Shown here is a 351-nucleotide sequence from Cytophagaceae bacterium BCCC1, a member of the family "Bacterial RNase P class A". By type it is a ribozyme.
RNA sequence: GAAAUAAGCUGACCUAUCGCCAGAUUAGUUAUAAUUUGGAGGAAAGUCCGAACAACACAGAGCAUCAUGCUACCUAACGGGUAGGGGAGAAUUCGUUCUCUACAGAUAGUGCCACAGAAAAUUACCGCCAUAUUUCGGUGUGGUAAGGGUGAAAAGGUGGUGUAAGAGACCACCGGUAGACUUGCAAAAUGAUACGCAUAGGUAAACCUCAUGAGUUGAAAGACCAAAUAAACCGACGCUAAAGGGUAGCUCGCUCAAGUCGGAGGGUAGGUUGAUAGAGGUUUUGAGCAAUCAAUUCCCUAGAUAAAUGAUAGGAUAGAACAGAAUUCGGCUUAUUAGCUUAUUUCAUUU
Numbered sequence: 001g002a003a004a005u006a007a008g009c010u011g012a013c014c015u016a017u018c019g020c021c022a023g024a025u026u027a028g029u030u031a032u033a034a035u036u037u038g039g040a041g042g043a044a045a046g047u048c049c050g051a052a053c054a055a056c057a058c059a060g061a062g063c064a065u066c067a068u069g070c071u072a073c074c075u076a077a078c079g080g081g082u083a084g085g086g087g088a089g090a091a092u093u094c095g096u097u098c099u100c101u102a103c104a105g106a107u108a109g110u111g112c113c114a115c116a117g118a119a120a121a122u123u124a125c126c127g128c129c130a131u132a133u134u135u136c137g138g139u140g141u142g143g144u145a146a147g148g149g150u151g152a153a154a155a156g157g158u159g160g161u162g163u164a165a166g167a168g169a170c171c172a173c174c175g176g177u178a179g180a181c182u183u184g185c186a187a188a189a190u191g192a193u194a195c196g197c198a199u200a201g202g203u204a205a206a207c208c209u210c211a212u213g214a215g216u217u218g219a220a221a222g223a224c225c226a227a228a229u230a231a232a233c234c235g236a237c238g239c240u241a242a243a244g245g246g247u248a249g250c251u252c253g254c255u256c257a258a259g260u261c262g263g264a265g266g267g268u269a270g271g272u273u274g275a276u277a278g279a280g281g282u283u284u285u286g287a288g289c290a291a292u293c294a295a296u297u298c299c300c301u302a303g304a305u306a307a308a309u310g311a312u313a314g315g316a317u318a319g320a321a322c323a324g325a326a327u328u329c330g331g332c333u334u335a336u337u338a339g340c341u342u343a344u345u346u347c348a349u350u351u
Base pairs, nucleotide, nucleotide: 001347002346003345004344005343006342007341008340009339010338011336013315014314015313016312017311018310020039021038022037023036024035025034026033027032044334045333046332048331049330050329051328052327053218054217055216056215060252061251062250063249065214066213067212068211069210070084071083072082073081074080085103086101087100088099089098090097091096104209105208109207110206111203112202113201125148126147127144128143129142130141131140132139133138156174157173158172159171160170161169175197176195177194178193182189183188222273223272224271225270233263234262235261236260237259244256245255246254247253280299281298284295285294286293287292